[Rfam]
RNA sequence: GUGCCUGUGGGAUGAACAGGUCCCAAUAUUUAGCGCCAUUUGCUCACUUUGUCAGUUAUAUCCAUACAUAUUUAGCUGAUCAUUUAAGAAUGGAAAAUUA
Numbered sequence: 001g002u003g004c005c006u007g008u009g010g011g012a013u014g015a016a017c018a019g020g021u022c023c024c025a026a027u028a029u030u031u032a033g034c035g036c037c038a039u040u041u042g043c044u045c046a047c048u049u050u051g052u053c054a055g056u057u058a059u060a061u062c063c064a065u066a067c068a069u070a071u072u073u074a075g076c077u078g079a080u081c082a083u084u085u086a087a088g089a090a091u092g093g094a095a096a097a098u099u100a
Stems, first nucleotide, its partner, number of pairs: 036093005051080008